[Rfam]
Rfam assigns this 82-nucleotide RNA sequence from Actinoplanes philippinensis to the family "SAH (S-adenosyl-L-homocysteine) riboswitch aptamer". A search with the family's covariance model found it, with a score of 39 bits. The literature on the family includes a 2008 paper in Mol Cell by Wang et al., "Riboswitches that sense S-adenosylhomocysteine and activate genes involved in coenzyme recycling". The base pairs follow the family's consensus structure, which is taken from published work.
RNA sequence: UCUGCCGAGAGGCGCUGCAACGGGCUCUGUCGAGACCCGCCACGCUCGGCCGGGUUUCUUGACGCAAGGGCGCCUCCUGAGA
Numbered sequence: 001u002c003u004g005c006c007g008a009g010a011g012g013c014g015c016u017g018c019a020a021c022g023g024g025c026u027c028u029g030u031c032g033a034g035a036c037c038c039g040c041c042a043c044g045c046u047c048g049g050c051c052g053g054g055u056u057u058c059u060u061g062a063c064g065c066a067a068g069g070g071c072g073c074c075u076c077c078u079g080a081g082a
Stems, first nucleotide, its partner, number of pairs: 002052001004050005021039004026034001